The family of this 82-nucleotide sequence is "skipping-rope RNA". The family's consensus secondary structure is taken from published work.
[Rfam]
RNA sequence: GUUAUUUGAGGUGGACAAUAGUGCCAUCCACGCACCUAAAUGGUCAAAAGAGAUGCAGGAAACGGCACACCUGCCAAAUAAC
Numbered sequence: 001g002u003u004a005u006u007u008g009a010g011g012u013g014g015a016c017a018a019u020a021g022u023g024c025c026a027u028c029c030a031c032g033c034a035c036c037u038a039a040a041u042g043g044u045c046a047a048a049a050g051a052g053a054u055g056c057a058g059g060a061a062a063c064g065g066c067a068c069a070c071c072u073g074c075c076a077a078a079u080a081a082c
Base pairs, nucleotide, nucleotide: 001082002081003080004079005078006077007076008075011031012030013029014028015027021068022067023066024065025064033050034044035043036042055074056073057072058071059070
It is one of the family's seed sequences.